[Rfam]
RNA: Cyano-1 RNA
RNA sequence: AAGCGUGUGAGGAGUAAAGCAAGGAAAAGCUCUUGGAGUCGAAACACGGUCAGACGCCCAGGAGCUUUUUAAU
Numbered sequence: 001a002a003g004c005g006u007g008u009g010a011g012g013a014g015u016a017a018a019g020c021a022a023g024g025a026a027a028a029g030c031u032c033u034u035g036g037a038g039u040c041g042a043a044a045c046a047c048g049g050u051c052a053g054a055c056g057c058c059c060a061g062g063a064g065c066u067u068u069u070u071a072a073u
Stems, first nucleotide, its partner, number of pairs: 026068005033061004038055003